[Rfam]
Nucleotides: 354
Stems, first nucleotide, its partner, number of pairs: 001317003009314001011197004016191001018190003022084002025081004030077002032073008045063007088184003091180004099173007106150001110146008121132003158165002202243006211237002216232004254313006262291012295302002319346003328339004
Number, partner (000 for none) and nucleotide at each position: 001317g002316g003315c004000g005000u006000a007000a008000a009314g010000c011197g012196c013195g014194c015000g016191c017000a018190g019189g020188c021000g022084g023083c024000c025081u026080u027079g028078u029000a030077a031076g032073u033072c034071u035070g036069u037068u038067g039066u040000u041000u042000c043000a044000g045063g046062c047061a048060c049059a050058a051057g052000c053000u054000c055000a056000a057051c058050u059049u060048g061047u062046g063045u064000u065000c066039g067038c068037a069036a070035u071034g072033g073032a074000a075000a076031c077030u078028g079027c080026a081025a082000a083023g084022c085000u086000u087000g088184a089183g090182u091180g092179c093178a094177g095000a096000a097000g098000a099173g100172g101171a102170a103169a104168g105167u106150g107000g108000a109000a110146u111145u112144c113143c114142a115141c116140g117139u118000g119000u120000a121132g122131c123130g124000g125000u126000g127000a128000a129000a130123u131122g132121c133000g134000u135000a136000g137000a138000g139117a140116u141115g142114u143113g144112g145111a146110g147000g148000a149000a150106c151000a152000c153000c154000a155000g156000u157000g158165g159164c160000g161000a162000a163000g164159g165158c166000g167105a168104c169103u170102u171101u172100c173099u174000g175000g176000g177094c178093u179092g180091u181000a182090a183089c184088u185000g186000a187000c188020g189019c190018u191016g192000a193000g194014g195013c196012g197011c198000g199000a200000a201000a202243g203242c204241g205240u206239g207238g208000g209000g210000a211237g212236c213000a214000a215000a216232c217231a218230g219229g220000a221000u222000u223000a224000g225000a226000u227000a228000c229219c230218c231217u232216g233000g234000u235000a236212g237211u238207c239206c240205a241204c242203g243202c244000c245000g246000u247000a248000a249000a250000c251000g252000a253000u254313g255312a256311a257310u258309g259308c260000u261000a262291g263290g264289u265288g266287u267286u268285a269284g270283g271282g272281g273280u274000u275000u276000c277000g278000a279000u280273a281272c282271c283270c284269u285268u286267g287266g288265u289264g290263c291262c292000g293000a294000a295302g296301u297000u298000a299000a300000c301296a302295c303000a304000u305000u306000a307000a308259g309258c310257a311256u312255u313254c314009c315003g316002c317001c318000u319346g320345g321344g322000g323000a324000g325000u326000a327000c328339g329338g330337u331336c332000g333000c334000a335000a336331g337330a338329c339328u340000g341000a342000a343000a344321c345320u346319c347000a348000a349000a350000g351000g352000a353000a354000u